[Rfam]
RNA sequence: CUGAACUGAUGCCGAGGCAGGCGUAAGCCUGGGGGAAUUACCUGUGAAAGCAGGCAGCUGCACUGAGUGCACCACUGAACCCUUCAACACCUCAACUGCACCCUCUCUGGCGCACAGGCAUCUUUCA
Numbered sequence: 001c002u003g004a005a006c007u008g009a010u011g012c013c014g015a016g017g018c019a020g021g022c023g024u025a026a027g028c029c030u031g032g033g034g035g036a037a038u039u040a041c042c043u044g045u046g047a048a049a050g051c052a053g054g055c056a057g058c059u060g061c062a063c064u065g066a067g068u069g070c071a072c073c074a075c076u077g078a079a080c081c082c083u084u085c086a087a088c089a090c091c092u093c094a095a096c097u098g099c100a101c102c103c104u105c106u107c108u109g110g111c112g113c114a115c116a117g118g119c120a121u122c123u124u125u126c127a
Base pairs, nucleotide, nucleotide: 002127003126004125005124008122009121010120011119012118013117018031019030020029021028022027032083033082034081035080041054042053043052044051045050055077056076057075059071060070061069062068063067
RNA: EFASI RNA
Organism: Winslowiella toletana